[Rfam]
RNA sequence: AAAAAUUUUAAAGCGCCAGGAGUUAAGUAAUUAAGUGGAAACUCAGUAUAGCUGAGUAAAUUUCACUAAUCAAAUCAAAGAUUUGUUUUGUAAAGUAAACUCAGCACAGCUGAGUAAGUUCCAUUAACCAAAUCGAAGCUUUGGAAUGUCACUUAACUUGACGAGGAUGGGGAGAAUCGAACUCUUCGGCGGGUGCCCCACGGUAUCACACUACCGUAAACGGCUAACAAAACCAAAAAGUGAUUUUUGGGACAAUAUUAGUCUGGUGUAAAAA
Numbered sequence: 001a002a003a004a005a006u007u008u009u010a011a012a013g014c015g016c017c018a019g020g021a022g023u024u025a026a027g028u029a030a031u032u033a034a035g036u037g038g039a040a041a042c043u044c045a046g047u048a049u050a051g052c053u054g055a056g057u058a059a060a061u062u063u064c065a066c067u068a069a070u071c072a073a074a075u076c077a078a079a080g081a082u083u084u085g086u087u088u089u090g091u092a093a094a095g096u097a098a099a100c101u102c103a104g105c106a107c108a109g110c111u112g113a114g115u116a117a118g119u120u121c122c123a124u125u126a127a128c129c130a131a132a133u134c135g136a137a138g139c140u141u142u143g144g145a146a147u148g149u150c151a152c153u154u155a156a157c158u159u160g161a162c163g164a165g166g167a168u169g170g171g172g173a174g175a176a177u178c179g180a181a182c183u184c185u186u187c188g189g190c191g192g193g194u195g196c197c198c199c200a201c202g203g204u205a206u207c208a209c210a211c212u213a214c215c216g217u218a219a220a221c222g223g224c225u226a227a228c229a230a231a232a233c234c235a236a237a238a239a240g241u242g243a244u245u246u247u248u249g250g251g252a253c254a255a256u257a258u259u260a261g262u263c264u265g266g267u268g269u270a271a272a273a274a
Stems, first nucleotide, its partner, number of pairs: 020159008168200005177189004201216005222263005233250007

Overview
This 274-nucleotide sequence from Clostridium acidisoli belongs to the Rfam family "glmS glucosamine-6-phosphate activated ribozyme aptamer". Rfam describes the family as follows. This entry contains a glucosamine-6-phosphate activated ribozyme that is found in the mRNA for GlmS. GlmS is an enzyme that uses fructose-6-phosphate and glutamine to generate glucosamine-6-phosphate. It is annotated as a riboswitch. The match comes from Rfam's covariance-model search (96 bits).